This 130-nucleotide sequence from Heterocephalus glaber belongs to the Rfam family "Small nucleolar RNA SNORA61". It is annotated as an H/ACA-box small nucleolar RNA. Gene Ontology terms of the family: nucleolus and RNA processing. From the family's description: ACA61 is a member of the H/ACA class of snoRNA that guide the sites of modification of uridines to pseudouridines. Lineage of the source: Eukaryota > Euteleostomi > Boreoeutheria > Euarchontoglires > Heterocephalus. It scores 90 bits against the family's covariance model. The family's consensus secondary structure was predicted with PFOLD.
[Rfam]
RNA sequence: UACCCCUAGUUUCCUUUCCCACUCAUCUAAACACCGGUCUUGGUGGUGGUAAAGGAGGAACAGUAAUGCCGACGCCGGCCUCACAGCCUUAUAGGCUGGUACAUAGCAUGCAGGCUAGUGUCAAAUAGGC
Dot-bracket structure: ..((.((...........(((((.(((........)))...))))).......)).))................(.(((((........(.(.............).)...))))).)............